[Rfam]
RNA sequence: AGAACAACAAAAGGACUUAAAGGUGGGUUGCAUGCUACUCUCUAUGUCAAAGCAUAGAUGGGUGGUGAUGCCAUGACGACAUUCCAAGCAUUGACGCUAAUGAUUCAAUUCGCUACGUUGGUGCUAUUGAUCAUGUCGUUUAGAGAAAGAAAAAAGUAACCCCACCUUUGAGUUGACCGCUCUUUAGGGUUACUUCCUUAAUUAGUAGCGUGUUUCUCGCCUUUGGGCGAUUUUGUUGUUCUUACUUGCCAUCAGUGUUGUAGCACUGGUG
Numbered sequence: 001a002g003a004a005c006a007a008c009a010a011a012a013g014g015a016c017u018u019a020a021a022g023g024u025g026g027g028u029u030g031c032a033u034g035c036u037a038c039u040c041u042c043u044a045u046g047u048c049a050a051a052g053c054a055u056a057g058a059u060g061g062g063u064g065g066u067g068a069u070g071c072c073a074u075g076a077c078g079a080c081a082u083u084c085c086a087a088g089c090a091u092u093g094a095c096g097c098u099a100a101u102g103a104u105u106c107a108a109u110u111c112g113c114u115a116c117g118u119u120g121g122u123g124c125u126a127u128u129g130a131u132c133a134u135g136u137c138g139u140u141u142a143g144a145g146a147a148a149g150a151a152a153a154a155a156g157u158a159a160c161c162c163c164a165c166c167u168u169u170g171a172g173u174u175g176a177c178c179g180c181u182c183u184u185u186a187g188g189g190u191u192a193c194u195u196c197c198u199u200a201a202u203u204a205g206u207a208g209c210g211u212g213u214u215u216c217u218c219g220c221c222u223u224u225g226g227g228c229g230a231u232u233u234u235g236u237u238g239u240u241c242u243u244a245c246u247u248g249c250c251a252u253c254a255g256u257g258u259u260g261u262a263g264c265a266c267u268g269g270u271g
Base pairs, nucleotide, nucleotide: 001242002241003240005238006237007236009234016172017171018170019169020168021167022166023165025162026161027160028159033067034066036064037063038062039061040060075140076139077138078137079136080135081134089102090101112132114130182205183204217230218229219228220227250271251270252269253268254267255266256265257264258263
This 271-nucleotide sequence from Terrilactibacillus tamarindi belongs to the Rfam family "BsrG". On this family, see Muller et al., RNA Biol 2016: "A multistress responsive type I toxin-antitoxin system: bsrE/SR5 from the B. subtilis chromosome". The family has 6 seed sequences and 614 matches in Rfam 15.1. Rfam's curators write: bsrE, bsrG and bsrH pair through intermolecular interactions with antisense sRNAs. They form type I toxin/antitoxin system that includes an mRNA encoding for a short, toxic peptide (bsrE, bsrG and bsrH) and an antitoxin that is comprised of an antisense RNA. bsrG encodes a 39-amino-acid toxin, and the 180 nucleotide antisense sRNA called SR4 acts as the antitoxin (they overlap by 123 nucleotides). SR4 interaction with the 3'UTR of bsrG RNA promotes bsrG degradation and inhibits its translation. BsrG interferes with cell envelope biosynthesis, causes membrane invaginations and delocalisation of the cell wall synthesis and initiates autolysis. bsrE RNA encodes 30 amino-acid toxin peptide. Lineage of the source: Bacteria > Bacillota > Caryophanales > Bacillaceae > Terrilactibacillus. The family's RNA type in Rfam is small RNA. The family's consensus secondary structure was predicted with WAR.